A member of the RNA family "Streptomyces RNA 1601" from Streptomyces mashuensis, 201 nucleotides long. It is annotated as a small RNA. Rfam describes the family as follows. Identified by deep sequencing of transcriptome at the end of exponential growth phase.
RNA sequence: GUCGACCGGCUGGACACUCAUGUGCCCGGCCCACAAGUGGAGCUCCGAUCUCCCACCUCGCCGACCACGGGUCGGCAGGUCUCCGGUCAGACGGCCGCCAUCGUUCCGUACGGACGAUGGAGCCGUCCGAUGCGCCCCGCGGCUCGCCGUGGCGGUGUUCCGGUCCUUGGAGCCCCGCCUGUGCCCGUCGGGGCAUUUUUC
Numbered sequence: 001g002u003c004g005a006c007c008g009g010c011u012g013g014a015c016a017c018u019c020a021u022g023u024g025c026c027c028g029g030c031c032c033a034c035a036a037g038u039g040g041a042g043c044u045c046c047g048a049u050c051u052c053c054c055a056c057c058u059c060g061c062c063g064a065c066c067a068c069g070g071g072u073c074g075g076c077a078g079g080u081c082u083c084c085g086g087u088c089a090g091a092c093g094g095c096c097g098c099c100a101u102c103g104u105u106c107c108g109u110a111c112g113g114a115c116g117a118u119g120g121a122g123c124c125g126u127c128c129g130a131u132g133c134g135c136c137c138c139g140c141g142g143c144u145c146g147c148c149g150u151g152g153c154g155g156u157g158u159u160c161c162g163g164u165c166c167u168u169g170g171a172g173c174c175c176c177g178c179c180u181g182u183g184c185c186c187g188u189c190g191g192g193g194c195a196u197u198u199u200u201c
Base pairs, nucleotide, nucleotide: 004088005087006086007085008084009083012027013026028081029080030079031078035058037056038055039054040053041051042050060076061075062074063073064072065071066070090127091126092125093124094123098120099119100118101117102116103115104114105113134194135193136192137191138190139189140187141186142185148183149182150181151179152178153177154176155175157173158172159171160170161169